[Rfam]
RNA: BsrF
Organism: Heyndrickxia ginsengihumi
RNA sequence: GCGAUGAGCUGAAUUGUGUAAGUCGACAGACGUUAAAAAUGCACAAUGUGGAGUGCAGUCUAGUCGCCACAAUUAUAUAUGUUUUUUCAAAAAAGC
Numbered sequence: 001g002c003g004a005u006g007a008g009c010u011g012a013a014u015u016g017u018g019u020a021a022g023u024c025g026a027c028a029g030a031c032g033u034u035a036a037a038a039a040u041g042c043a044c045a046a047u048g049u050g051g052a053g054u055g056c057a058g059u060c061u062a063g064u065c066g067c068c069a070c071a072a073u074u075a076u077a078u079a080u081g082u083u084u085u086u087u088c089a090a091a092a093a094a095g096c
Stems, first nucleotide, its partner, number of pairs: 014072005024066004028061004040057002043054002081096006